[Rfam]
RNA sequence: GAUUGAAGCAAGCAUGGUAAUGUGCUGCAAACAAAUUGAUUUGGGUUUCUAGGUCUGCCCUCUCUGAUGCCUUUUGGCUUCGAUGGGCAUGGUUCAGCAGCAAAACA
Numbered sequence: 001g002a003u004u005g006a007a008g009c010a011a012g013c014a015u016g017g018u019a020a021u022g023u024g025c026u027g028c029a030a031a032c033a034a035a036u037u038g039a040u041u042u043g044g045g046u047u048u049c050u051a052g053g054u055c056u057g058c059c060c061u062c063u064c065u066g067a068u069g070c071c072u073u074u075u076g077g078c079u080u081c082g083a084u085g086g087g088c089a090u091g092g093u094u095c096a097g098c099a100g101c102a103a104a105a106c107a
Base pairs, nucleotide, nucleotide: 012025013024014023015022043090045088046087047086053084054083055082057078058077059076
RNA: Small nucleolar RNA snoR100